[Rfam]
RNA sequence: UGUUGAAAAUACUCUUUUAGUAUUUGUCCAGUAGGUUUUCUUUAAAAGGAAGCCCAU
Numbered sequence: 001u002g003u004u005g006a007a008a009a010u011a012c013u014c015u016u017u018u019a020g021u022a023u024u025u026g027u028c029c030a031g032u033a034g035g036u037u038u039u040c041u042u043u044a045a046a047a048g049g050a051a052g053c054c055c056a057u
Stems, first nucleotide, its partner, number of pairs: 034054008

U7 small nuclear RNA: a 57-nucleotide RNA sequence from Sinocyclocheilus grahami. About the family: Animal histone pre-mRNAs are spliced by a different mechanism than nuclear pre-mRNAs and self-splicing introns. This processing involves the U7 snRNP, which contains only one RNA species: U7. The 5' end of U7 RNA is thought to base-pair to a conserved spacer element downstream of the cleavage site in histone pre-mRNA. This family contains a number of annotated U7 pseudogenes. A reference for the family is Spycher et al. (1994), "3' end processing of mouse histone pre-mRNA: evidence for additional base-pairing between U7 snRNA and pre-mRNA", Nucleic Acids Res. A search with the family's covariance model found it, with a score of 46 bits. The family's consensus secondary structure was predicted with PFOLD.